[Rfam]
RNA sequence: UUUCCGCGGGGUGUCUGAUCUAACCCUAAAUGAGGGUCUCCUCCUGUACUAAGCGUUUGCUGUUUUCUUGUUCCUGGCUUUCAGCAGAUUACAGGAGGACGUUGGCAGGAGCGUUAACAAGGGAAAAAAGCCAGGAAAUCACCCCGACGUGCUCGGCUUCCUCCCUGAAACCCCGGCGAUGUUUGCCGUGGUCAGCCCGGCUGCCACGAAGAGUUAGCCUCUGCUGCUCCGUGGGUUUUUGCCAGUGGGGGAGUCUCUGUGUCUGAGCAGAUUAAAACUGAGUGAGGUGACCCUGUCGGACCUGCUGUGGUUCGGUGAGGAAACCUGUGCUCAAACAUUC
Numbered sequence: 001u002u003u004c005c006g007c008g009g010g011g012u013g014u015c016u017g018a019u020c021u022a023a024c025c026c027u028a029a030a031u032g033a034g035g036g037u038c039u040c041c042u043c044c045u046g047u048a049c050u051a052a053g054c055g056u057u058u059g060c061u062g063u064u065u066u067c068u069u070g071u072u073c074c075u076g077g078c079u080u081u082c083a084g085c086a087g088a089u090u091a092c093a094g095g096a097g098g099a100c101g102u103u104g105g106c107a108g109g110a111g112c113g114u115u116a117a118c119a120a121g122g123g124a125a126a127a128a129a130g131c132c133a134g135g136a137a138a139u140c141a142c143c144c145c146g147a148c149g150u151g152c153u154c155g156g157c158u159u160c161c162u163c164c165c166u167g168a169a170a171c172c173c174c175g176g177c178g179a180u181g182u183u184u185g186c187c188g189u190g191g192u193c194a195g196c197c198c199g200g201c202u203g204c205c206a207c208g209a210a211g212a213g214u215u216a217g218c219c220u221c222u223g224c225u226g227c228u229c230c231g232u233g234g235g236u237u238u239u240u241g242c243c244a245g246u247g248g249g250g251g252a253g254u255c256u257c258u259g260u261g262u263c264u265g266a267g268c269a270g271a272u273u274a275a276a277a278c279u280g281a282g283u284g285a286g287g288u289g290a291c292c293c294u295g296u297c298g299g300a301c302c303u304g305c306u307g308u309g310g311u312u313c314g315g316u317g318a319g320g321a322a323a324c325c326u327g328u329g330c331u332c333a334a335a336c337a338u339u340c
Stems, first nucleotide, its partner, number of pairs: 002147001007146007040098005055089008071135001074134005079128003152267005157253007167239007174231003187208005193203004210222004280332004285326004291320001296318002299312004
Dot-bracket structure: .(....(((((((..........................(((((..........((((((((........[..[[[[[[[[))))))))....)))))...........................]]].]]]]]]....))))))))....((((((((((((...((((((((((..........(((((.((((...))))))))).((((.....))))......))).))))))).......))))))).........)))))............((((.((((..(....((.((((......))))....)).)..))))..))))........
RNA: Vertebrate telomerase RNA